[Rfam]
RNA sequence: GUCGGAGGAAGCUCGCCUUAGAGGCCACGUGCUGGGUGCGCGUCACCCACCCGCCUCUGGGAAGGUCUGAGACAAGGGCCAGUAGCCGCCCUUGCAGGGCGCCACCCCACGCGGGUGGGGGAGUCCCCAGGCAGGUGGGCCCCGCGGCGGGGUCGCAGCUUCGGGCAGGAGAAGUGGGGCGUCUACCCUUGUGGCAGCCCCCACGGAUGCCCUGCCCCGCUCGGGGCUUGGGACAGACUCCCGGCCGGCAACGCUGAGUGCAAUGAGGUGAGAUGGGACAUGCCCCACAACCCAAUUCAGACUAGUCUCCUUCCGGC
Dot-bracket structure: ((((..(((..[[[[[.[.(((((.........(((((.....))))).....)))))........(((((.....((((......(((((.....)))))((((((.....))))))(((((((.............((((((.............................................................................))))))........)))))))))))..................].].]]]].((((......))))........))))).......)))...))))
This 317-nucleotide RNA sequence from Sphenodon punctatus belongs to the Rfam family "Nuclear RNase P". On this family, see Marquez et al., RNA 2005: "Structural implications of novel diversity in eucaryal RNase P RNA". The source organism's lineage runs through Eukaryota, Metazoa, Euteleostomi, Sphenodontia and Sphenodon. The family's RNA type in Rfam is ribozyme. A search with the family's covariance model found it, with a score of 179 bits.